[Rfam]
RNA sequence: GCAAGUUUUUUUGGGGGAAGGGCCUGCUGAAUUCAAAAUUUCGAAUUCGGCAGGCCCUUCCCCCAAAAAACAUUUC
Numbered sequence: 001g002c003a004a005g006u007u008u009u010u011u012u013g014g015g016g017g018a019a020g021g022g023c024c025u026g027c028u029g030a031a032u033u034c035a036a037a038a039u040u041u042c043g044a045a046u047u048c049g050g051c052a053g054g055c056c057c058u059u060c061c062c063c064c065a066a067a068a069a070a071c072a073u074u075u076c
Base pairs, nucleotide, nucleotide: 007070008069009068010067011066012065013064015062016061017060020057021056022055023054025052027050028049
The record is a 76-nucleotide RNA sequence from Chara braunii, which matches "mir-129 microRNA precursor family" in Rfam. The literature on the family includes a 2002 paper in Curr Biol by Lagos-Quintana et al., "Identification of tissue-specific microRNAs from mouse". Gene Ontology terms of the family: gene silencing by miRNA, synapse and miRNA-mediated post-transcriptional gene silencing.